[Rfam]
RNA sequence: CGAAUAACUUGUUAGGUGAGGCUCCUAUGGAGAUAGAUGCUGCUGCCCAGAAAAAUCGAGAGAUUCCAAUGGGUCAACAGAUAUGAUCGGGAAGGUCAUAUUUAACGUAGCUGACGAAGGGUCAAAGCUCUAUAGUGCUAAAGCUCAACAUAGAAGAAUGAAA
Numbered sequence: 001c002g003a004a005u006a007a008c009u010u011g012u013u014a015g016g017u018g019a020g021g022c023u024c025c026u027a028u029g030g031a032g033a034u035a036g037a038u039g040c041u042g043c044u045g046c047c048c049a050g051a052a053a054a055a056u057c058g059a060g061a062g063a064u065u066c067c068a069a070u071g072g073g074u075c076a077a078c079a080g081a082u083a084u085g086a087u088c089g090g091g092a093a094g095g096u097c098a099u100a101u102u103u104a105a106c107g108u109a110g111c112u113g114a115c116g117a118a119g120g121g122u123c124a125a126a127g128c129u130c131u132a133u134a135g136u137g138c139u140a141a142a143g144c145u146c147a148a149c150a151u152a153g154a155a156g157a158a159u160g161a162a163a
Stems, first nucleotide, its partner, number of pairs: 008156003011149002013093001015145003020139003025135008039111005045074005054065004080102004086096003113123003